[Rfam]
RNA sequence: CUCGCGACGUUUCGCAUUUACCCGCUAACAAAAGGAGCUCGUCUCAUCAAUGCGGGUGGGAAAUUCGGUGGUUCUCCCCAUCCAUGAAAAGUUACUUUAGAGAGUAUCCUGGCGUGAAAAUGCUGGGCGGCGCCAUCAGAAAUUAAGCGUUUUCGCUAUGGGAGGCGCCGCGGAUGGUUGGUCCUUUGCUAUGAGGAGGGGCUUUUGAGUGCAAUAUGCGAACCUAGUAAUAGGCACCCGAUACCGAUCAUCGUUGUGAG
Numbered sequence: 001c002u003c004g005c006g007a008c009g010u011u012u013c014g015c016a017u018u019u020a021c022c023c024g025c026u027a028a029c030a031a032a033a034g035g036a037g038c039u040c041g042u043c044u045c046a047u048c049a050a051u052g053c054g055g056g057u058g059g060g061a062a063a064u065u066c067g068g069u070g071g072u073u074c075u076c077c078c079c080a081u082c083c084a085u086g087a088a089a090a091g092u093u094a095c096u097u098u099a100g101a102g103a104g105u106a107u108c109c110u111g112g113c114g115u116g117a118a119a120a121u122g123c124u125g126g127g128c129g130g131c132g133c134c135a136u137c138a139g140a141a142a143u144u145a146a147g148c149g150u151u152u153u154c155g156c157u158a159u160g161g162g163a164g165g166c167g168c169c170g171c172g173g174a175u176g177g178u179u180g181g182u183c184c185u186u187u188g189c190u191a192u193g194a195g196g197a198g199g200g201g202c203u204u205u206u207g208a209g210u211g212c213a214a215u216a217u218g219c220g221a222a223c224c225u226a227g228u229a230a231u232a233g234g235c236a237c238c239c240g241a242u243a244c245c246g247a248u249c250a251u252c253g254u255u256g257u258g259a260g
Stems, first nucleotide, its partner, number of pairs: 001260004005253003010222003020057005035045003066246005080175004093106005110125006128170007146157003223234004
Notes
Nuclear RNase P: a 260-nucleotide RNA from Suhomyces tanzawaensis. The literature on the family includes a 1998 paper in Annu Rev Biochem by Frank and Pace, "Ribonuclease P: unity and diversity in a tRNA processing ribozyme". The match comes from Rfam's covariance-model search (60 bits). Pairs were carried over by alignment from the consensus structure, which is taken from published work. It is annotated as a ribozyme.